[Rfam]
RNA sequence: GGCGCCUCCUGUUCUGCUGUGCCGCCAGCGCCUCCCCUAGCUGCGCUUUCUGGAGAGGCUUUGUGCGGACUCGGGGCUGGAGGCCU
Number, nucleotide and partner (000 for none) at each position: 001g000002g000003c000004g084005c083006c082007u081008c080009c079010u000011g077012u076013u075014c074015u073016g072017c000018u000019g070020u069021g000022c068023c067024g066025c065026c063027a062028g061029c000030g059031c058032c057033u056034c055035c053036c052037c000038u000039a047040g046041c045042u000043g000044c000045g041046c040047u039048u000049u000050c000051u000052g036053g035054a000055g034056a033057g032058g031059c030060u000061u028062u027063g026064u000065g025066c024067g023068g022069a020070c019071u000072c016073g015074g014075g013076g012077c011078u000079g009080g008081a007082g006083g005084c004085c000086u000
The family of this 86-nucleotide sequence from Pongo pygmaeus is "mir-3188 microRNA precursor family". Lineage of the source: Eukaryota > Deuterostomia > Mammalia > Boreoeutheria > Pongo. The family's consensus secondary structure was predicted with RNAalifold. Gene Ontology terms of the family: miRNA-mediated post-transcriptional gene silencing and RISC complex.